[Rfam]
RNA sequence: UGCCCGUUGGUCCAAUUGGCACGGACGCCGCGCUCUGGACGCGGAGAUCGAGGUUCGAGUCCUCGACGGGCAG
Numbered sequence: 001u002g003c004c005c006g007u008u009g010g011u012c013c014a015a016u017u018g019g020c021a022c023g024g025a026c027g028c029c030g031c032g033c034u035c036u037g038g039a040c041g042c043g044g045a046g047a048u049c050g051a052g053g054u055u056c057g058a059g060u061c062c063u064c065g066a067c068g069g070g071c072a073g
Stems, first nucleotide, its partner, number of pairs: 001072007010026004028044005049065005
Dot-bracket structure: (((((((..((((.........)))).(((((.......)))))....(((((.......)))))))))))).
tRNA: a 73-nucleotide RNA sequence from Lentzea aerocolonigenes. The match comes from Rfam's covariance-model search (58 bits). Its family is annotated with triplet codon-amino acid adaptor activity in the Gene Ontology. The source organism's lineage runs through Bacteria, Actinomycetota, Actinomycetes, Pseudonocardiales and Lentzea.